This 305-nucleotide RNA from Prunus persica belongs to the Rfam family "Plant signal recognition particle RNA". Lineage of the source: Eukaryota > Streptophytina > Euphyllophyta > eudicotyledons > Prunus. Rfam classes the family as a non-coding RNA gene.
[Rfam]
RNA sequence: GCUAAGCUUAGCAAUGCAAGCUUGUAACCCAGGUAGGGGCUUUAAGGUGUUGGAACAUUGGCCCAAUAUAGUGGGUCGGUUUGGAGUGGCUCUAUUCUGACCUGCCCAUUCCAAGCCAGAAGUUGGGCCAUGUGGCUUGGGCGAAGGCUCUGGGCUUCAUGGUUCCUAGAGUGGAGGGAAUUGCGUAAGGCUGGCUUCACAGAGCAACGAUCACCUCCCGCUCCGGGCAGUGGAAGGAUAAUGGGUCGGUGCCACCCUGAAACGCUCUAGCCCGCUAGAUUGUCCUCGACUGAACCAAAACCUUU
Numbered sequence: 001g002c003u004a005a006g007c008u009u010a011g012c013a014a015u016g017c018a019a020g021c022u023u024g025u026a027a028c029c030c031a032g033g034u035a036g037g038g039g040c041u042u043u044a045a046g047g048u049g050u051u052g053g054a055a056c057a058u059u060g061g062c063c064c065a066a067u068a069u070a071g072u073g074g075g076u077c078g079g080u081u082u083g084g085a086g087u088g089g090c091u092c093u094a095u096u097c098u099g100a101c102c103u104g105c106c107c108a109u110u111c112c113a114a115g116c117c118a119g120a121a122g123u124u125g126g127g128c129c130a131u132g133u134g135g136c137u138u139g140g141g142c143g144a145a146g147g148c149u150c151u152g153g154g155c156u157u158c159a160u161g162g163u164u165c166c167u168a169g170a171g172u173g174g175a176g177g178g179a180a181u182u183g184c185g186u187a188a189g190g191c192u193g194g195c196u197u198c199a200c201a202g203a204g205c206a207a208c209g210a211u212c213a214c215c216u217c218c219c220g221c222u223c224c225g226g227g228c229a230g231u232g233g234a235a236g237g238a239u240a241a242u243g244g245g246u247c248g249g250u251g252c253c254a255c256c257c258u259g260a261a262a263c264g265c266u267c268u269a270g271c272c273c274g275c276u277a278g279a280u281u282g283u284c285c286u287c288g289a290c291u292g293a294a295c296c297a298a299a300a301c302c303u304u305u
Stems, first nucleotide, its partner, number of pairs: 001040003004023006028037002044304005050298004056292002058289003061285001064282004069277008077264002080261005086256001087254003091251001097249008106237002109235005115228003119224001121222003125165008134156006140149003166171001173218005184209003191202003